[Rfam]
RNA sequence: GAUGGUUGGCAGUGUGGUUAGCUGGUUGUGAAAUAUUUACUUGAAUCCACAGCCACUAUCCAAACUGUCCACUGUC
Numbered sequence: 001g002a003u004g005g006u007u008g009g010c011a012g013u014g015u016g017g018u019u020a021g022c023u024g025g026u027u028g029u030g031a032a033a034u035a036u037u038u039a040c041u042u043g044a045a046u047c048c049a050c051a052g053c054c055a056c057u058a059u060c061c062a063a064a065c066u067g068u069c070c071a072c073u074g075u076c
Base pairs, nucleotide, nucleotide: 002075003074004073005072006071008069009068011066012065013064015062016061017060019058020057021056023055024054025053026052027051028050029049030048
mir-34 microRNA precursor family: a 76-nucleotide RNA sequence from Daphnia pulex.
It is one of the family's seed sequences.
Rfam describes the family as follows. Human mir-34a was discovered computationally and later experimentally verified. The mature sequence is excised from the 5' arm of the hairpin.
Its Rfam clan is "mir-34 clan".
Gene Ontology terms of the family: miRNA-mediated post-transcriptional gene silencing and RISC complex.
The family's consensus secondary structure was predicted with RNAalifold.